Notes
The family of this 130-nucleotide sequence from Polypterus senegalus is "Small nucleolar RNA SNORA71".
[Rfam]
RNA sequence: ACCUGCAUUGAUAGUGAUCUUGGUAUCCUCGUUGCCUGGUCAUCAGAACUGCAGGAAAAGUAACCUGAAAGCAUUUCCCGUGUUUGAGUGGGUCUGAUAUAACCCUGUCGAACCUCGUAGCUUUCAGACA
Dot-bracket structure: .((((((.(....((((((..((((.......)))).))))))....).))))))........(.(((((((.........(((((.(.((...........)).)..)))))......))))))))...

Taxonomically the source falls in Polypterus (Eukaryota, Bilateria, Actinopterygii, Polypteridae). Rfam's curators write: The members of this family belong to the H/ACA class of snoRNAs which bind a number of proteins (including dyskerin, Gar1p and Nop10p) to form snoRNP complexes. Its family is annotated with nucleolus and RNA processing in the Gene Ontology. A reference for the family is Ganot et al. (1997), "The family of box ACA small nucleolar RNAs is defined by an evolutionarily conserved secondary structure and ubiquitous sequence elements essential for RNA accumulation", Genes Dev.